[Rfam]
Rfam assigns this 72-nucleotide RNA sequence from Carassius auratus to the family "mir-21 microRNA precursor family". The literature on the family includes a 2006 paper in FEBS Lett by Xu et al., "Identification of microRNAs from different tissues of chicken embryo and adult chicken". The match comes from Rfam's covariance-model search (64 bits). Pairs were carried over by alignment from the consensus structure, which was predicted with RNAalifold.
RNA sequence: UGUCAGCUAGCUUAUCAGACUGGUGUUGGCUGGAUAUUAUAUGGCAACAUCACUUUGAUAGGCUGCCUGAAA
Numbered sequence: 001u002g003u004c005a006g007c008u009a010g011c012u013u014a015u016c017a018g019a020c021u022g023g024u025g026u027u028g029g030c031u032g033g034a035u036a037u038u039a040u041a042u043g044g045c046a047a048c049a050u051c052a053c054u055u056u057g058a059u060a061g062g063c064u065g066c067c068u069g070a071a072a
Stems, first nucleotide, its partner, number of pairs: 008065008018055002021052002024049005030043001
Dot-bracket structure: .......((((((((..((.((.(((((.(............).))))).)).))..)))))))).......